[Rfam]
PrrF RNA: a 150-nucleotide RNA from Pseudomonas asplenii. On this family, see Wilderman et al., Proc Natl Acad Sci U S A 2004: "Identification of tandem duplicate regulatory small RNAs in Pseudomonas aeruginosa involved in iron homeostasis". PrrF RNA is a small RNA involved in iron homeostasis and is found exclusively in Pseudomonas species.
RNA sequence: UUGACUUAGAAAUGAGAAUCGUUAUGAUUAUCACAACUGAUCGCGAGAUCGGUUGGAUUCUCUGGAGGCCCUUGGUUCGGACUCUUCAGAUUAUCUCCUCAUCAGGCUAAUCACGGUUAUUGACCCGGCUUUUUGCCGGGUCUUUUUUUU
Numbered sequence: 001u002u003g004a005c006u007u008a009g010a011a012a013u014g015a016g017a018a019u020c021g022u023u024a025u026g027a028u029u030a031u032c033a034c035a036a037c038u039g040a041u042c043g044c045g046a047g048a049u050c051g052g053u054u055g056g057a058u059u060c061u062c063u064g065g066a067g068g069c070c071c072u073u074g075g076u077u078c079g080g081a082c083u084c085u086u087c088a089g090a091u092u093a094u095c096u097c098c099u100c101a102u103c104a105g106g107c108u109a110a111u112c113a114c115g116g117u118u119a120u121u122g123a124c125c126c127g128g129c130u131u132u133u134u135g136c137c138g139g140g141u142c143u144u145u146u147u148u149u150u
Stems, first nucleotide, its partner, number of pairs: 034055009062089003065085001067083002069079001097106003122142008

Its family is annotated with sRNA-mediated gene silencing in the Gene Ontology. Rfam classes the family as a small RNA.